RNA sequence: GGUCAUGAGCGCCAGCGUCAAGCCCCGGCUCGCUGGCCGGCAACCCUCGUCCGCGCAGGGGUGCCCCGGGUGAAGACCAGGCAUCGGAGCGGCUCCGGUGCAAGCGCGGCCU
Numbered sequence: 001g002g003u004c005a006u007g008a009g010c011g012c013c014a015g016c017g018u019c020a021a022g023c024c025c026c027g028g029c030u031c032g033c034u035g036g037c038c039g040g041c042a043a044c045c046c047u048c049g050u051c052c053g054c055g056c057a058g059g060g061g062u063g064c065c066c067c068g069g070g071u072g073a074a075g076a077c078c079a080g081g082c083a084u085c086g087g088a089g090c091g092g093c094u095c096c097g098g099u100g101c102a103a104g105c106g107c108g109g110c111c112u
Stems, first nucleotide, its partner, number of pairs: 001078004009038001011037006021030002039065003044061003048055001081101009